A member of the RNA family "c-di-GMP-I riboswitch aptamer" from Halonatronomonas betaini, 86 nucleotides long.
Pairs were carried over by alignment from the consensus structure, which is taken from published work.
A search with the family's covariance model found it, with a score of 69 bits.
NCBI's taxonomy places the organism under Bacteria, Bacillota, Halanaerobiales, Halarsenatibacteraceae, Halonatronomonas.
[Rfam]
RNA sequence: UAAAUAUUUUGGCAAAAUUACUGAAAGGUAAUGGCGCAAAGCUAUGGGUCUAAAGAUGGUUUAUCGAUGAUUGCCAGGCUGCGAUG
Numbered sequence: 001u002a003a004a005u006a007u008u009u010u011g012g013c014a015a016a017a018u019u020a021c022u023g024a025a026a027g028g029u030a031a032u033g034g035c036g037c038a039a040a041g042c043u044a045u046g047g048g049u050c051u052a053a054a055g056a057u058g059g060u061u062u063a064u065c066g067a068u069g070a071u072u073g074c075c076a077g078g079c080u081g082c083g084a085u086g
Stems, first nucleotide, its partner, number of pairs: 012037002017032006040080004045076003048071003055065004